[Rfam]
RNA sequence: UUUGGGAAAUGAUGCCAAGAUUCAAACAGAGGCGCCAGCUGCUGAUUAAUCUAUUGCCCGUCAGUCUGAUCCAAAA
Number, nucleotide and partner (000 for none) at each position: 001u076002u075003u074004g000005g072006g071007a070008a000009a000010u000011g000012a000013u000014g000015c000016c000017a000018a000019g000020a000021u000022u000023c000024a000025a000026a000027c000028a000029g000030a000031g000032g000033c000034g000035c000036c000037a000038g000039c000040u000041g000042c000043u000044g000045a000046u000047u000048a000049a000050u000051c000052u000053a000054u000055u000056g000057c000058c000059c000060g000061u000062c000063a000064g000065u000066c000067u000068g000069a000070u007071c006072c005073a000074a003075a002076a001
RNA: Small nucleolar RNA Z122
Organism: Salix purpurea